Rfam assigns this 100-nucleotide sequence from Paenibacillus endophyticus to the family "Purine riboswitch aptamer". Rfam links the family to the GO term purine nucleobase biosynthetic process. The source organism's lineage runs through Bacteria, Bacillota, Caryophanales, Paenibacillaceae and Paenibacillus.
RNA sequence: UUUAUUCAUUUACAUUAAUCUCGUAUAUAUUUGGGAUAAGGCCUGAAUGUUUCUACCCGGAAACCUUAAUUUUCGGACUACGAGCAAGAUGAGACGAUAA
Numbered sequence: 001u002u003u004a005u006u007c008a009u010u011u012a013c014a015u016u017a018a019u020c021u022c023g024u025a026u027a028u029a030u031u032u033g034g035g036a037u038a039a040g041g042c043c044u045g046a047a048u049g050u051u052u053c054u055a056c057c058c059g060g061a062a063a064c065c066u067u068a069a070u071u072u073u074c075g076g077a078c079u080a081c082g083a084g085c086a087a088g089a090u091g092a093g094a095c096g097a098u099a100a
Stems, first nucleotide, its partner, number of pairs: 020084006029048007057076007
The base pairs follow the family's consensus structure, which is taken from published work.